RNA sequence: GGUCAACACAAGGAGGCAGACAUGGGACUUACGAACUCUCUCAAUGUCCUGAUCGUCGGUGCGGCGUUUGUGUUCAUCGCCACAAUGCUGUUCAUCUGAACCACAUGAGUUGAACAAGGCCUCGAAGGAACCGUCAGCGGUCAGGCCCGAAACAAGCCAGUAGAGCUUUCCAGUUUCACAAAGAAAGGCGCAUCAUCCCUUCGGAGAUGCGCCUU
Numbered sequence: 001g002g003u004c005a006a007c008a009c010a011a012g013g014a015g016g017c018a019g020a021c022a023u024g025g026g027a028c029u030u031a032c033g034a035a036c037u038c039u040c041u042c043a044a045u046g047u048c049c050u051g052a053u054c055g056u057c058g059g060u061g062c063g064g065c066g067u068u069u070g071u072g073u074u075c076a077u078c079g080c081c082a083c084a085a086u087g088c089u090g091u092u093c094a095u096c097u098g099a100a101c102c103a104c105a106u107g108a109g110u111u112g113a114a115c116a117a118g119g120c121c122u123c124g125a126a127g128g129a130a131c132c133g134u135c136a137g138c139g140g141u142c143a144g145g146c147c148c149g150a151a152a153c154a155a156g157c158c159a160g161u162a163g164a165g166c167u168u169u170c171c172a173g174u175u176u177c178a179c180a181a182a183g184a185a186a187g188g189c190g191c192a193u194c195a196u197c198c199c200u201u202c203g204g205a206g207a208u209g210c211g212c213c214u215u
Stems, first nucleotide, its partner, number of pairs: 015048004024040004185215010196205003